[Rfam]
Nucleotides: 131
Base pairs, nucleotide, nucleotide: 003062004061005060006059007058009056016048017047018046019045021043024041025040026039027038028037074124075123078120086112087111088110091106092105093104094103
Number, partner (000 for none) and nucleotide at each position: 001000u002000u003062u004061c005060c006059c007058c008000u009056u010000c011000u012000a013000a014000c015000a016048c017047c018046g019045g020000g021043g022000c023000u024041u025040g026039c027038u028037g029000c030000c031000g032000u033000c034000u035000c036000g037028c038027g039026g040025c041024a042000g043021u044000g045019c046018c047017g048016g049000c050000u051000u052000u053000u054000u055000c056009a057000c058007g059006g060005g061004g062003g063000c064000a065000g066000a067000g068000u069000a070000a071000c072000g073000a074124g075123c076000a077000c078120u079000c080000u081000u082000c083000c084000c085000u086112c087111c088110c089000u090000g091106g092105a093104g094103g095000a096000c097000g098000c099000u100000a101000u102000u103094c104093c105092u106091c107000u108000u109000c110088g111087g112086g113000c114000c115000u116000a117000a118000g119000a120078g121000a122000u123075g124074c125000c126000g127000a128000c129000a130000g131000u